[Rfam]
Shown here is a 175-nucleotide part of an RNA from Verticillium dahliae, a member of the family "Eukaryotic large subunit ribosomal RNA".
It is one of the family's seed sequences.
The base pairs follow the family's consensus structure, which is taken from published work.
Taxonomically the source falls in Verticillium dahliae (Eukaryota, Fungi, saccharomyceta, Glomerellales).
RNA sequence: AUCUGUUAAACCAUAACGCAGGUGUCCUAAGGGGGGCUCAUGGAGAACAGAAAUCUCCAGUAGAACAAAAGGGUAAAAGUCCCCUUGAUUUUGAUUUUCAGUGUGAAUACAAACCAUGAAAGUGUGGCCUAUCGAUCCUUUAGUCCCUCGGAGUUUGAGGCUAGAGGUGCCAGAA
Dot-bracket structure: ((((((...........))))))..((....((((((((.((((((.......))))))...))((......))....))))))....(((..((((.......))))..))).(((....))).))..........((((((..((((.......)))))))))).........